[Rfam]
RNA sequence: GUUCCCCCGGCUGGAGAGAGGCCCGCCCCGUGCGGGUCCACCGAAGGAGCAAGCCCCACCCGGGCGCCGCGAUGUCCGCGAGCGCCCAGGCGGCGUGAAUCUCUCAGGUAAAGCGGACAGCGGGCAGAUC
Numbered sequence: 001g002u003u004c005c006c007c008c009g010g011c012u013g014g015a016g017a018g019a020g021g022c023c024c025g026c027c028c029c030g031u032g033c034g035g036g037u038c039c040a041c042c043g044a045a046g047g048a049g050c051a052a053g054c055c056c057c058a059c060c061c062g063g064g065c066g067c068c069g070c071g072a073u074g075u076c077c078g079c080g081a082g083c084g085c086c087c088a089g090g091c092g093g094c095g096u097g098a099a100u101c102u103c104u105c106a107g108g109u110a111a112a113g114c115g116g117a118c119a120g121c122g123g124g125c126a127g128a129u130c
Stems, first nucleotide, its partner, number of pairs: 007124002010121004020038007040109003043105002047103003053096002
Shown here is a 130-nucleotide RNA from Paracidovorax avenae, a member of the family "Glycine riboswitch aptamer".
This family represents the bacterial glycine riboswitch.
Lineage of the source: Bacteria > Pseudomonadati > Burkholderiales > Paracidovorax > Paracidovorax avenae.